[Rfam]
RNA sequence: GCCAGCCAUGCGGGAGAGUUCGUCUCCGGGACGGCGCCGAAGGGGCAAAUCCUCCCCGGAACCUCUCAGGCAAACGGACCGUGUGGGCUGC
Numbered sequence: 001g002c003c004a005g006c007c008a009u010g011c012g013g014g015a016g017a018g019u020u021c022g023u024c025u026c027c028g029g030g031a032c033g034g035c036g037c038c039g040a041a042g043g044g045g046c047a048a049a050u051c052c053u054c055c056c057c058g059g060a061a062c063c064u065c066u067c068a069g070g071c072a073a074a075c076g077g078a079c080c081g082u083g084u085g086g087g088c089u090g091c
Base pairs, nucleotide, nucleotide: 006086007085008084009083010082011081012080013079020034021033022032023031036071037070038069039067040066043065044064045063050058
The record is a 91-nucleotide RNA sequence from Paractinoplanes tereljensis, which matches "Glycine riboswitch aptamer" in Rfam. It scores 63 bits against the family's covariance model. This family represents the bacterial glycine riboswitch.